[Rfam]
RNA sequence: CUCAGGUACGGAGACAUGGUGCCCAAGACCAUCGCUGGAAAGAUCUUUGGGUCCAUCUGCUCCCUGAGCGGCGUCCUGGUCAUCGCCCUGCCGGUGCCCGUGAUCGUCUCCAAC
Numbered sequence: 001c002u003c004a005g006g007u008a009c010g011g012a013g014a015c016a017u018g019g020u021g022c023c024c025a026a027g028a029c030c031a032u033c034g035c036u037g038g039a040a041a042g043a044u045c046u047u048u049g050g051g052u053c054c055a056u057c058u059g060c061u062c063c064c065u066g067a068g069c070g071g072c073g074u075c076c077u078g079g080u081c082a083u084c085g086c087c088c089u090g091c092c093g094g095u096g097c098c099c100g101u102g103a104u105c106g107u108c109u110c111c112a113a114c
Base pairs, nucleotide, nucleotide: 002113005110008107009106010105011104014101015100018097021095022094037077038076040074049063050062051061

Potassium channel RNA editing signal: a 114-nucleotide sequence from Phyllostomus discolor. It is annotated as a cis-regulatory element. The match comes from Rfam's covariance-model search (87 bits). Pairs were carried over by alignment from the consensus structure, which is taken from published work.